[Rfam]
RNA sequence: AGGGCGGGCCUUUCAGGCAUCCUCUCCUAAAAACUUUCAUGGGCUGGCUCUUCGGAGCCGGCCCUUUUUUCUGUCUGUA
Numbered sequence: 001a002g003g004g005c006g007g008g009c010c011u012u013u014c015a016g017g018c019a020u021c022c023u024c025u026c027c028u029a030a031a032a033a034c035u036u037u038c039a040u041g042g043g044c045u046g047g048c049u050c051u052u053c054g055g056a057g058c059c060g061g062c063c064c065u066u067u068u069u070u071c072u073g074u075c076u077g078u079a
Stems, first nucleotide, its partner, number of pairs: 008018004041064009
RNA: Makes More Granules Regulator RNA (mmgR)